A member of the RNA family "Plastid-ccsA-ndhD-1 3UTR RNA", 55 nucleotides long. Its Rfam clan is "Plastid-ccsA_ndhD 3UTR RNA clan". For this family Rfam cites "Surprising features of plastid ndhD transcripts: addition of non-encoded nucleotides and polysome association of mRNAs with an unedited start codon" (Zandueta-Criado and Bock, Nucleic Acids Res, 2004). About the family: Plastid-ccsA-ndhD-1 is a non-coding RNA (ncRNA) recognised in plastids.
RNA sequence: AGUCGGCGAGAACCAUAUGAAUCAAGUAGUGUAGUUAUUCAUAUGGUUCUCACAA
Dot-bracket structure: .....(.(((((((((((((((..............))))))))))))))).)..